Nucleotides: 138
Stems, first nucleotide, its partner, number of pairs: 002059003007054001015052003018045002021042008063127002066124001068122002071118003080106004
Number, partner (000 for none) and nucleotide at each position: 001000u002059g003058c004057a005000c006000c007054g008000u009000g010000u011000g012000g013000u014000a015052c016051c017050u018045a019044c020000a021042u022041u023040c024039a025038g026037c027036a028035g029000u030000u031000u032000a033000u034000u035028c036027u037026g038025c039024u040023g041022g042021g043000a044019g045018u046000u047000c048000a049000a050017a051016g052015g053000a054007c055000a056000a057004u058003g059002c060000u061000a062000a063127u064126a065000u066124a067000c068122a069121u070000g071118c072117a073116g074000u075000a076000u077000c078000u079000g080106g081105c082104a083103u084000c085000a086000u087000u088000g089000u090000u091000u092000u093000u094000c095000u096000u097000g098000g099000c100000u101000u102000u103083g104082u105081g106080c107000a108000u109000g110000u111000u112000a113000a114000a115000c116073c117072u118071g119000g120000u121069a122068u123000u124066u125000u126064u127063a128000c129000u130000g131000a132000u133000a134000c135000a136000g137000u138000a
This 138-nucleotide RNA sequence from Physeter macrocephalus belongs to the Rfam family "Small nucleolar RNA SNORA8". NCBI's taxonomy places the organism under Eukaryota, Gnathostomata, Eutheria, Physeteridae, Physeter. The family's RNA type in Rfam is H/ACA-box small nucleolar RNA. Its Rfam clan is "SNORA8 clan". A search with the family's covariance model found it, with a score of 115 bits. About the family: ACA8 is a member of the H/ACA class of snoRNA that guide the sites of modification of uridines to pseudouridines. The base pairs follow the family's consensus structure, which was predicted with RNAfold.